[Rfam]
RNA sequence: ACAAAGGCUCUUUUAAGAGCCACCUCACUCUUCACUAAAGAACUUA
Numbered sequence: 001a002c003a004a005a006g007g008c009u010c011u012u013u014u015a016a017g018a019g020c021c022a023c024c025u026c027a028c029u030c031u032u033c034a035c036u037a038a039a040g041a042a043c044u045u046a
Base pairs, nucleotide, nucleotide: 006021007020008019009018010017011016
Rfam assigns this 46-nucleotide RNA from Collichthys lucidus to the family "Histone 3' UTR stem-loop". Pairs were carried over by alignment from the consensus structure, which is taken from published work. The source organism's lineage runs through Eukaryota, Deuterostomia, Actinopteri, Percomorphaceae and Collichthys. It is annotated as a cis-regulatory element. Rfam 15.1 lists 44,596 matches to the family in 976 species. From the family's description: The mRNAs of metazoan histone genes lack a poly-A tail. 3' end processing occurs at a site between a highly conserved stem-loop (modelled by this family) and a purine rich region around 20 nts downstream (the histone downstream element, or HDE). The stem-loop is bound by a 31 kDa stem-loop binding protein (SLBP - also termed the histone hairpin binding protein, or HBP). Together with U7 snRNA binding of the HDE, SLBP binding nucleate s the formation of the processing complex. The histone 3' UTR stem-loop is also involved in nucleocytoplasmic transport of the mRNA, and in stability regulation and translation efficiency in the cytoplasm.